RNA sequence: AGAUCACAAGACAGCGUGAGUGGGUUGUGCCUAUUUACGGUAGGACCACGCCCAGGAAAGUCCCCGGACUACUUUCCGCAGAGAUGCGGCCUUGGAAACAAGUGCGCUUCGAGCGUGAGAGUCCAUUUCGCCUUCAGUGCGAUAGGGCUGAGACAAGUGUGGAGCCUUUGAACUCUCGCCGAAGUAGAUUGGCCAACUAACACAGUUAUUCACGCGGUCCACUGGACUAACUGAACGGGGCUUACGAUCUUGUGGUC
Dot-bracket structure: .((((((((((..((((((..((((........................))))....[[[.[[[[...........((((....))))((((((....)))).)).....................((...((((.(.......((((......(....)...))))...........).)))).))......................)))))).((((...)))).........]]]]]]]....))))))))))
Numbered sequence: 001a002g003a004u005c006a007c008a009a010g011a012c013a014g015c016g017u018g019a020g021u022g023g024g025u026u027g028u029g030c031c032u033a034u035u036u037a038c039g040g041u042a043g044g045a046c047c048a049c050g051c052c053c054a055g056g057a058a059a060g061u062c063c064c065c066g067g068a069c070u071a072c073u074u075u076c077c078g079c080a081g082a083g084a085u086g087c088g089g090c091c092u093u094g095g096a097a098a099c100a101a102g103u104g105c106g107c108u109u110c111g112a113g114c115g116u117g118a119g120a121g122u123c124c125a126u127u128u129c130g131c132c133u134u135c136a137g138u139g140c141g142a143u144a145g146g147g148c149u150g151a152g153a154c155a156a157g158u159g160u161g162g163a164g165c166c167u168u169u170g171a172a173c174u175c176u177c178g179c180c181g182a183a184g185u186a187g188a189u190u191g192g193c194c195a196a197c198u199a200a201c202a203c204a205g206u207u208a209u210u211c212a213c214g215c216g217g218u219c220c221a222c223u224g225g226a227c228u229a230a231c232u233g234a235a236c237g238g239g240g241c242u243u244a245c246g247a248u249c250u251u252g253u254g255g256u257c
Stems, first nucleotide, its partner, number of pairs: 002257010014215006022053004058243003062240004077088004089105002091102004127187002132184004137179001145167004155160001217227004
Notes
The record is a 257-nucleotide RNA from Camellia sinensis, which matches "RNase MRP" in Rfam. A search with the family's covariance model found it, with a score of 76 bits. Lineage of the source: Eukaryota > Viridiplantae > Streptophytina > Euphyllophyta > Camellia sinensis. Pairs were carried over by alignment from the consensus structure, which is taken from published work.